Rfam assigns this 87-nucleotide RNA sequence from Pelotomaculum propionicicum to the family "c-di-GMP-I riboswitch aptamer".
The family's consensus secondary structure is taken from published work.
Rfam links the family to the GO term cyclic-di-GMP binding.

[Rfam]
RNA sequence: UCUUGUCAAGGGCAAACUCACCGAAAGGUGGGGACGCAAAGCCUACAGGCCUAAAGCUGUAAAAGCUAUGGCGGCUGGGUUGCCUGG
Numbered sequence: 001u002c003u004u005g006u007c008a009a010g011g012g013c014a015a016a017c018u019c020a021c022c023g024a025a026a027g028g029u030g031g032g033g034a035c036g037c038a039a040a041g042c043c044u045a046c047a048g049g050c051c052u053a054a055a056g057c058u059g060u061a062a063a064a065g066c067u068a069u070g071g072c073g074g075c076u077g078g079g080u081u082g083c084c085u086g087g
Stems, first nucleotide, its partner, number of pairs: 012037002017032006040081004046077003049072003056066003
Source information: A search with the family's covariance model found it, with a score of 76 bits.